The record is a 600-nucleotide part of an RNA from Strongyloides ratti, which matches "Eukaryotic large subunit ribosomal RNA" in Rfam. Lineage of the source: Eukaryota > Nematoda > Tylenchina > Panagrolaimomorpha > Strongyloides. The family is grouped with related families in Rfam's "LSU clan".
[Rfam]
RNA sequence: GAAGACCCUGUUGAGCUUGACUCUAGCUAGGCAUUGUGAAGUGUCAUAUGAGGUGUAGCAUAGGUGGGAGUUAUUUUAUAACGAUCUUGAAAUACCACUACUUAUAUUGAUAUUUUACUUAGUUGAUUAAAUGGAAAUUUUAUAUAUUAAUUUAUAUAAUAAUUUUUGUAUUAAAUUAAUAUCUUUGAGAUAUUUAAUAAUCCACGUCAAUGACCAUGUCUGGCGGGGAGUUUGACUGGGGCGGUACAUCUAUCAAACUGUAACGUAGGUGUCCUAAGGCAAACUCAAAGAGGACAGAAACCUCUUGUAGAGUAAAAGGGCAAAAGUUUGCUUGAUCAUGAUUUUCAGUACGAAUACAGACCCUGAAAGGGUGGCCUAUCGAUCCUUUUGUAUUAGUAUGUUUCUAAAAAGAGGUGCCAGAAAAGUUACCACAGGGAUAACUGGCUUGUGGCAGCCAAGAGUCCAUAUCGACGUUGCUUUUUGACGUGGAUUAUUAAAUAUCUCAAAGAUAUUAAUUUAAUACAAAAAUUAUUAUAUAAAUUAAUAUAUAAAAUUUCCAUUUAAUCAACUAAGUAAAAUAUCAAUAUAAGUAGUGGUAUU
Numbered sequence: 001g002a003a004g005a006c007c008c009u010g011u012u013g014a015g016c017u018u019g020a021c022u023c024u025a026g027c028u029a030g031g032c033a034u035u036g037u038g039a040a041g042u043g044u045c046a047u048a049u050g051a052g053g054u055g056u057a058g059c060a061u062a063g064g065u066g067g068g069a070g071u072u073a074u075u076u077u078a079u080a081a082c083g084a085u086c087u088u089g090a091a092a093u094a095c096c097a098c099u100a101c102u103u104a105u106a107u108u109g110a111u112a113u114u115u116u117a118c119u120u121a122g123u124u125g126a127u128u129a130a131a132u133g134g135a136a137a138u139u140u141u142a143u144a145u146a147u148u149a150a151u152u153u154a155u156a157u158a159a160u161a162a163u164u165u166u167u168g169u170a171u172u173a174a175a176u177u178a179a180u181a182u183c184u185u186u187g188a189g190a191u192a193u194u195u196a197a198u199a200a201u202c203c204a205c206g207u208c209a210a211u212g213a214c215c216a217u218g219u220c221u222g223g224c225g226g227g228g229a230g231u232u233u234g235a236c237u238g239g240g241g242c243g244g245u246a247c248a249u250c251u252a253u254c255a256a257a258c259u260g261u262a263a264c265g266u267a268g269g270u271g272u273c274c275u276a277a278g279g280c281a282a283a284c285u286c287a288a289a290g291a292g293g294a295c296a297g298a299a300a301c302c303u304c305u306u307g308u309a310g311a312g313u314a315a316a317a318g319g320g321c322a323a324a325a326g327u328u329u330g331c332u333u334g335a336u337c338a339u340g341a342u343u344u345u346c347a348g349u350a351c352g353a354a355u356a357c358a359g360a361c362c363c364u365g366a367a368a369g370g371g372u373g374g375c376c377u378a379u380c381g382a383u384c385c386u387u388u389u390g391u392a393u394u395a396g397u398a399u400g401u402u403u404c405u406a407a408a409a410a411g412a413g414g415u416g417c418c419a420g421a422a423a424a425g426u427u428a429c430c431a432c433a434g435g436g437a438u439a440a441c442u443g444g445c446u447u448g449u450g451g452c453a454g455c456c457a458a459g460a461g462u463c464c465a466u467a468u469c470g471a472c473g474u475u476g477c478u479u480u481u482u483g484a485c486g487u488g489g490a491u492u493a494u495u496a497a498a499u500a501u502c503u504c505a506a507a508g509a510u511a512u513u514a515a516u517u518u519a520a521u522a523c524a525a526a527a528a529u530u531a532u533u534a535u536a537u538a539a540a541u542u543a544a545u546a547u548a549u550a551a552a553a554u555u556u557c558c559a560u561u562u563a564a565u566c567a568a569c570u571a572a573g574u575a576a577a578a579u580a581u582c583a584a585u586a587u588a589a590g591u592a593g594u595g596g597u598a599u600u
Stems, first nucleotide, its partner, number of pairs: 007435004012431002014427005020231004027223007036118010046107007063099005070082002122211005132204004140159007175198005234247001235245003248270006273374002279331006285311002288306006312321002336360002341355004362371003385413005393407004444485001446483001448482001450478006459469002